The family of this 84-nucleotide RNA from Geobacillus sp. WCH70 is "Group II catalytic intron D1-D4-1". For this family Rfam cites "Group II introns: structure and catalytic versatility of large natural ribozymes" (Lehmann and Schmidt, Crit Rev Biochem Mol Biol, 2003). Rfam's curators put it in the seed alignment.
RNA sequence: UAACCUACUUAGUGAUAAGUAGCUGAACCGUCAGAAGUCAGCAGAGGUCAUAGUAUUAGUUGGUCUAGAACAACUGAGAAGGAC
Numbered sequence: 001u002a003a004c005c006u007a008c009u010u011a012g013u014g015a016u017a018a019g020u021a022g023c024u025g026a027a028c029c030g031u032c033a034g035a036a037g038u039c040a041g042c043a044g045a046g047g048u049c050a051u052a053g054u055a056u057u058a059g060u061u062g063g064u065c066u067a068g069a070a071c072a073a074c075u076g077a078g079a080a081g082g083a084c
Base pairs, nucleotide, nucleotide: 001025002024005022006021007020008019009018010017011016038045039044047084048083049082056077057076058075059074060073061072